Shown here is a 101-nucleotide sequence from Falsochrobactrum ovis, a member of the family "rpsB sRNA".
RNA sequence: CACACACGGGAUUGGGCUUUGGUCGGGAGAAAUCCGAUUUCAGCCUCCGGUGGCGAGUGAUCGCCUCAGUCCGUGGAGGUUAAACCGGAAAAGGAAAAUUA
Numbered sequence: 001c002a003c004a005c006a007c008g009g010g011a012u013u014g015g016g017c018u019u020u021g022g023u024c025g026g027g028a029g030a031a032a033u034c035c036g037a038u039u040u041c042a043g044c045c046u047c048c049g050g051u052g053g054c055g056a057g058u059g060a061u062c063g064c065c066u067c068a069g070u071c072c073g074u075g076g077a078g079g080u081u082a083a084a085c086c087g088g089a090a091a092a093g094g095a096a097a098a099u100u101a
Stems, first nucleotide, its partner, number of pairs: 001078001003076001005075006014045002024036002027034001052065005

The base pairs follow the family's consensus structure, which is taken from published work. For this family Rfam cites "Identification of candidate structured RNAs in the marine organism 'Candidatus Pelagibacter ubique'" (Meyer et al., BMC Genomics, 2009). By type it is a small RNA.